[Rfam]
The record is a 101-nucleotide sequence from Cavia porcellus, which matches "Vault RNA" in Rfam.
The source organism's lineage runs through Eukaryota, Teleostomi, Boreoeutheria, Euarchontoglires and Cavia.
It is annotated as a non-coding RNA gene.
The literature on the family includes a 2009 paper in Mol Biol Evol by Stadler et al., "Evolution of Vault RNAs".
RNA sequence: GGGCUGGCUUUAGCCCAGCGGUUCCUUCGAGUCUGGCUUCCCAACCGCCCGGGCCGAUUGGUCCGGUGGUUUGAGACCCGCAGGCACUCUCCAGUCCUUUA
Numbered sequence: 001g002g003g004c005u006g007g008c009u010u011u012a013g014c015c016c017a018g019c020g021g022u023u024c025c026u027u028c029g030a031g032u033c034u035g036g037c038u039u040c041c042c043a044a045c046c047g048c049c050c051g052g053g054c055c056g057a058u059u060g061g062u063c064c065g066g067u068g069g070u071u072u073g074a075g076a077c078c079c080g081c082a083g084g085c086a087c088u089c090u091c092c093a094g095u096c097c098u099u100u101a
Stems, first nucleotide, its partner, number of pairs: 002096006013085003018081004026075005